[Rfam]
tRNA: a 72-nucleotide RNA from Caldimicrobium thiodismutans. Rfam classes the family as a transfer RNA. The base pairs follow the family's consensus structure, which is taken from published work. The source organism's lineage runs through Bacteria, Thermodesulfobacteria, Thermodesulfobacteriales, Thermodesulfobacteriaceae and Caldimicrobium.
RNA sequence: GGGGAUGUAGCUCAGAGGGAGAGCGCCGGAAUCGCACUCCGGAGGUCGGGGGUUCAAAUCCCCUCAUCUCCA
Numbered sequence: 001g002g003g004g005a006u007g008u009a010g011c012u013c014a015g016a017g018g019g020a021g022a023g024c025g026c027c028g029g030a031a032u033c034g035c036a037c038u039c040c041g042g043a044g045g046u047c048g049g050g051g052g053u054u055c056a057a058a059u060c061c062c063c064u065c066a067u068c069u070c071c072a
Stems, first nucleotide, its partner, number of pairs: 001071007010024004026042005048064005
Dot-bracket structure: (((((((..((((.......)))).(((((.......))))).....(((((.......)))))))))))).

Description
The match comes from Rfam's covariance-model search (68 bits).